The record is a 72-nucleotide sequence from Anisakis simplex, which matches "mir-124 microRNA precursor family" in Rfam. It scores 51 bits against the family's covariance model.

RNA sequence: UGCGAAUCGCUUUCACCGGUGACUUUGGUGUGAAAAAGCGACAACUAAGGCACGCGGUGAAUGCCAAUCGCU
Number, nucleotide and partner (000 for none) at each position: 001u000002g000003c070004g069005a068006a000007u000008c000009g064010c063011u000012u061013u060014c059015a058016c057017c000018g000019g055020u054021g053022a000023c050024u049025u048026u047027g046028g045029u044030g000031u000032g000033a000034a000035a000036a000037a000038g000039c000040g000041a000042c000043a000044a029045c028046u027047a026048a025049g024050g023051c000052a000053c021054g020055c019056g000057g016058u015059g014060a013061a012062u000063g010064c009065c000066a000067a000068u005069c004070g003071c000072u000